The family of this 118-nucleotide RNA sequence from Epidermidibacterium keratini is "SAM (S-adenosyl methionine) riboswitch aptamer". Pairs were carried over by alignment from the consensus structure, which is taken from published work. Rfam links the family to the GO terms S-adenosylmethionine metabolic process and regulation of gene expression. Rfam describes the family as follows. SAM-IV is a mRNA element that regulates gene expression via direct sensing of S-adenosylmethionine (SAM or AdoMet). SAM-IV riboswitches share conserved nucleotide positions with the previously described SAM-I riboswitches sequence analysis and molecular recognition experiments suggest that SAM-I and SAM-IV riboswitches share similar ligand binding sites, but have different scaffolds. Taxonomically the source falls in Epidermidibacterium (Bacteria, Actinomycetota, Sporichthyales, Sporichthyaceae). The family is grouped with related families in Rfam's "SAM clan".
Nucleotides: 118
Stems, first nucleotide, its partner, number of pairs: 001080004009038001011037006021030002039067003044063003048058001083107002086104006
Number, partner (000 for none) and nucleotide at each position: 001080g002079g003078u004077c005000a006000c007000g008000a009038g010000u011037u012036c013035c014034a015033g016032c017000g018000c019000c020000a021030a022029g023000u024000u025000c026000c027000g028000g029022c030021u031000c032016g033015c034014u035013g036012g037011g038009c039067a040066g041065c042000a043000a044063c045062c046061c047000u048058c049000g050000u051000a052000c053000u054000u055000g056000c057000g058048g059000u060000g061046g062045g063044g064000u065041g066040c067039u068000c069000c070000g071000g072000a073000u074000a075000a076000c077004g078003a079002c080001c081000a082000g083107g084106c085000g086104g087103g088102u089101g090100c091099c092000a093000g094000c095000u096000u097000c098000g099091g100090g101089c102088a103087c104086c105000g106084g107083c108000a109000a110000g111000u112000g113000c114000a115000a116000g117000c118000c